Rfam assigns this 120-nucleotide sequence from Cicer arietinum to the family "U5 spliceosomal RNA". From the family's description: U5 RNA is a component of both types of known spliceosome. The precise function of this molecule is unknown, though it is known that the 5' loop is required for splice site selection and p220 binding, and that both the 3' stem-loop and the Sm site are important for Sm protein binding and cap methylation. The literature on the family includes a 1996 paper in J Biol Chem by Hinz et al., "Domain analysis of human U5 RNA. Cap trimethylation, protein binding, and spliceosome assembly". It scores 83 bits against the family's covariance model.
[Rfam]
RNA sequence: GAGCCAUGCAGUAACUACAAAGCGAACUAUUCUUUCGCCUUUUACUAAAGAAUACCGUGUAUUUACUGCUUCUAAGUGGCAUUCUUUUAUUUUUGGGAGGUGACUUUCAUCGGAAGGUCC
Numbered sequence: 001g002a003g004c005c006a007u008g009c010a011g012u013a014a015c016u017a018c019a020a021a022g023c024g025a026a027c028u029a030u031u032c033u034u035u036c037g038c039c040u041u042u043u044a045c046u047a048a049a050g051a052a053u054a055c056c057g058u059g060u061a062u063u064u065a066c067u068g069c070u071u072c073u074a075a076g077u078g079g080c081a082u083u084c085u086u087u088u089a090u091u092u093u094u095g096g097g098a099g100g101u102g103a104c105u106u107u108c109a110u111c112g113g114a115a116g117g118u119c120c
Stems, first nucleotide, its partner, number of pairs: 003080004009068006016061004028054008097120001102119006